RNA sequence: AGUGAGGAUAGAGGUGCAAAAACCAUUAGUACACAAUUGGAGGAUAAUGAGGUCCUAUGAUAAUUGUAGAAAGGGGAAUUUGCCGAAGCUUAAAAGAAUCUCAUAUUCUAUUAAGCUGGGUCUGUGUUGAAUAAAUACAGAACUGUCAUAUAGGAGACUAUAUGGAGGGCUAUCGCACAA
Numbered sequence: 001a002g003u004g005a006g007g008a009u010a011g012a013g014g015u016g017c018a019a020a021a022a023c024c025a026u027u028a029g030u031a032c033a034c035a036a037u038u039g040g041a042g043g044a045u046a047a048u049g050a051g052g053u054c055c056u057a058u059g060a061u062a063a064u065u066g067u068a069g070a071a072a073g074g075g076g077a078a079u080u081u082g083c084c085g086a087a088g089c090u091u092a093a094a095a096g097a098a099u100c101u102c103a104u105a106u107u108c109u110a111u112u113a114a115g116c117u118g119g120g121u122c123u124g125u126g127u128u129g130a131a132u133a134a135a136u137a138c139a140g141a142a143c144u145g146u147c148a149u150a151u152a153g154g155a156g157a158c159u160a161u162a163u164g165g166a167g168g169g170c171u172a173u174c175g176c177a178c179a180a
Base pairs, nucleotide, nucleotide: 007174008173009172010171011170016083017082018081019080020079023076024075033067034066035065036064037063038062039061087117088116089115090114091113092112093111095109096108097107098106118144119143121141122140123139124138125137126136127135128134146165147164148163149162150161151160152159

A member of the RNA family "Lysine riboswitch aptamer" from Cytobacillus depressus, 180 nucleotides long. For this family Rfam cites "Riboswitches Control Fundamental Biochemical Pathways in Bacillus subtilis and Other Bacteria" (Mandal et al., Cell, 2003). It scores 135 bits against the family's covariance model. The organism belongs to Cytobacillus, within Bacteria.